Rfam assigns this 84-nucleotide sequence from Lactococcus cremoris to the family "ctRNA".
Rfam describes the family as follows. Rolling circle replication plasmids contain a number of mechanisms to maintain a low copy number.
NCBI's taxonomy places the organism under Bacteria, Bacillati, Bacillota, Streptococcaceae, Lactococcus.
Rfam classes the family as an antisense RNA.
Gene Ontology terms of the family: plasmid copy number maintenance and mRNA binding.

[Rfam]
RNA sequence: UAGAAAUACUCCUUUGUGAGUGUUUAAGAAUAAGCAUAGAGAAAGUUUUCUUAGCGGGAAAUUUCUCUAUGCUAUUAUUAUACC
Numbered sequence: 001u002a003g004a005a006a007u008a009c010u011c012c013u014u015u016g017u018g019a020g021u022g023u024u025u026a027a028g029a030a031u032a033a034g035c036a037u038a039g040a041g042a043a044a045g046u047u048u049u050c051u052u053a054g055c056g057g058g059a060a061a062u063u064u065c066u067c068u069a070u071g072c073u074a075u076u077a078u079u080a081u082a083c084c
Base pairs, nucleotide, nucleotide: 005025006024007022008021009020010019011018033073034072035071036070037069038068039067040066041065042064043063044062